Fluoride riboswitch aptamer (crcB RNA motif): a 67-nucleotide sequence from Moheibacter sediminis. The match comes from Rfam's covariance-model search (50 bits). NCBI's taxonomy places the organism under Bacteria, Pseudomonadati, Flavobacteriia, Weeksellaceae, Moheibacter.
RNA sequence: AAAAUAAAAGGAAAUGGUGUUCUUCCUUACCCAAACCGCGUAAAUCGCUGAUGACGCCUGAUUUUUA
Dot-bracket structure: .........[[[[..((((((.]]]]...........(((.....)))....)))))).........
Numbered sequence: 001a002a003a004a005u006a007a008a009a010g011g012a013a014a015u016g017g018u019g020u021u022c023u024u025c026c027u028u029a030c031c032c033a034a035a036c037c038g039c040g041u042a043a044a045u046c047g048c049u050g051a052u053g054a055c056g057c058c059u060g061a062u063u064u065u066u067a
Stems, first nucleotide, its partner, number of pairs: 010026004016058006038048003